[Rfam]
RNA sequence: CGAUCGCACUAGGGGUGCAUAAAGAACUGUUCUUACACGGACAGCUCGAAUAGCUGAGAUUCAGGUGAAAAUCCUGUUAACCCUUUGAACCCGAACUAGGUAAUACUAGCGUGGGGAAGUGCAGUAGACGUCUU
Numbered sequence: 001c002g003a004u005c006g007c008a009c010u011a012g013g014g015g016u017g018c019a020u021a022a023a024g025a026a027c028u029g030u031u032c033u034u035a036c037a038c039g040g041a042c043a044g045c046u047c048g049a050a051u052a053g054c055u056g057a058g059a060u061u062c063a064g065g066u067g068a069a070a071a072u073c074c075u076g077u078u079a080a081c082c083c084u085u086u087g088a089a090c091c092c093g094a095a096c097u098a099g100g101u102a103a104u105a106c107u108a109g110c111g112u113g114g115g116g117a118a119g120u121g122c123a124g125u126a127g128a129c130g131u132c133u134u
Base pairs, nucleotide, nucleotide: 006122007121008120009119010118011084012083013082014081017054018053062076063075064074065073090115091114092113093112096109097108098107099106

The record is a 134-nucleotide RNA from Alteribacter keqinensis, which matches "TPP riboswitch aptamer (THI element)" in Rfam. Pairs were carried over by alignment from the consensus structure, which is taken from published work.